Source information: Small nucleolar RNA snoR53Y: an 89-nucleotide RNA sequence from Macleaya cordata. It is annotated as a C/D-box small nucleolar RNA. On this family, see Brown et al., RNA 2001: "Multiple snoRNA gene clusters from Arabidopsis". A search with the family's covariance model found it, with a score of 65 bits. Taxonomically the source falls in Macleaya (Eukaryota, Viridiplantae, Ranunculales, Papaveraceae). Its Rfam clan is "snoR53 clan".
[Rfam]
RNA sequence: GUUCCCAGUGAUGUUAAACAAACCAUGCUAAUUCUGAGAUUCUUUUUAAUGAAUGAAUCUUAUUCUUAUCCAGAUCUACUGAGGGAACU
Numbered sequence: 001g002u003u004c005c006c007a008g009u010g011a012u013g014u015u016a017a018a019c020a021a022a023c024c025a026u027g028c029u030a031a032u033u034c035u036g037a038g039a040u041u042c043u044u045u046u047u048a049a050u051g052a053a054u055g056a057a058u059c060u061u062a063u064u065c066u067u068a069u070c071c072a073g074a075u076c077u078a079c080u081g082a083g084g085g086a087a088c089u
Base pairs, nucleotide, nucleotide: 001088002087003086004085005084